[Rfam]
RNA sequence: UUUUGCAGCGCAAGCCGGCACGACCAGCUCCUGCUGAACUCCCCCAGGACCGGAAGGUAGCAAGGGUAGGCGGUUGUAGCGGUGCGAUGUUGGCUUGUAUUUUU
Number, nucleotide and partner (000 for none) at each position: 001u000002u000003u000004u000005g000006c000007a000008g100009c000010g098011c097012a096013a095014g094015c093016c092017g091018g090019c089020a088021c086022g085023a083024c082025c000026a000027g000028c000029u000030c000031c000032u000033g000034c000035u000036g000037a000038a000039c000040u000041c000042c000043c000044c000045c000046a000047g000048g000049a000050c000051c000052g000053g000054a000055a000056g000057g000058u000059a000060g000061c000062a000063a000064g000065g000066g000067u000068a000069g000070g000071c000072g000073g000074u000075u000076g000077u000078a000079g000080c000081g000082g024083u023084g000085c022086g021087a000088u020089g019090u018091u017092g016093g015094c014095u013096u012097g011098u010099a000100u008101u000102u000103u000104u000
The record is a 104-nucleotide RNA sequence from Chryseotalea sanaruensis, which matches "Bacteroidales small SRP" in Rfam. The base pairs follow the family's consensus structure, which is taken from published work. Rfam links the family to the GO terms SRP-dependent cotranslational protein targeting to membrane, signal sequence recognition and signal recognition particle, plasma membrane targeting. The family is grouped with related families in Rfam's "SRP clan". The literature on the family includes a 2020 paper in Nat Commun by Ryan et al., "A high-resolution transcriptome map identifies small RNA regulation of metabolism in the gut microbe Bacteroides thetaiotaomicron".